[Rfam]
RNA sequence: UUGAAGGCGUGGAGACUGAAGUCCUCUCUCUAUCCACAGAUCAGGUGUGGCACAGGCCGCGGCAGUGCAGCUUCCCACUGUGCCCCGCCCCGUGCCUCAGUCCUGGCUGAGAGGGGCCAUGUUGAGGGUAAGAGGGCUGUCAGUCUCCAUGCCCUUCAAUCUUUGGCUACU
Numbered sequence: 001u002u003g004a005a006g007g008c009g010u011g012g013a014g015a016c017u018g019a020a021g022u023c024c025u026c027u028c029u030c031u032a033u034c035c036a037c038a039g040a041u042c043a044g045g046u047g048u049g050g051c052a053c054a055g056g057c058c059g060c061g062g063c064a065g066u067g068c069a070g071c072u073u074c075c076c077a078c079u080g081u082g083c084c085c086c087g088c089c090c091c092g093u094g095c096c097u098c099a100g101u102c103c104u105g106g107c108u109g110a111g112a113g114g115g116g117c118c119a120u121g122u123u124g125a126g127g128g129u130a131a132g133a134g135g136g137c138u139g140u141c142a143g144u145c146u147c148c149a150u151g152c153c154c155u156u157c158a159a160u161c162u163u164u165g166g167c168u169a170c171u
Stems, first nucleotide, its partner, number of pairs: 002158003006153002010149010023135005031130004037105003047097001050095004055090001061084004108125001110123001112122001114120001
RNA: TUC338
Organism: Bos taurus